[Rfam]
RNA sequence: GCCGAGAGGGCGAGGAAUACAACACCCGCAAGGGGAAUAACUCCAGCCUACUUACUAGGGCUUUCGAACCUCUUGGCACCCUUAU
Numbered sequence: 001g002c003c004g005a006g007a008g009g010g011c012g013a014g015g016a017a018u019a020c021a022a023c024a025c026c027c028g029c030a031a032g033g034g035g036a037a038u039a040a041c042u043c044c045a046g047c048c049u050a051c052u053u054a055c056u057a058g059g060g061c062u063u064u065c066g067a068a069c070c071u072c073u074u075g076g077c078a079c080c081c082u083u084a085u
Stems, first nucleotide, its partner, number of pairs: 001077009012044001014042001016038001025034003045062005
RNA: sRNA-Xcc1